[Rfam]
RNA sequence: UGGCAACAGUGAUGACAAGUUUGGUCUGUAUGUAAUAUAUUUUAUUACUACGUGAAGACACCAGUCCCUCUAAGCUGAUGUUGCCG
Numbered sequence: 001u002g003g004c005a006a007c008a009g010u011g012a013u014g015a016c017a018a019g020u021u022u023g024g025u026c027u028g029u030a031u032g033u034a035a036u037a038u039a040u041u042u043u044a045u046u047a048c049u050a051c052g053u054g055a056a057g058a059c060a061c062c063a064g065u066c067c068c069u070c071u072a073a074g075c076u077g078a079u080g081u082u083g084c085c086g
Stems, first nucleotide, its partner, number of pairs: 001086007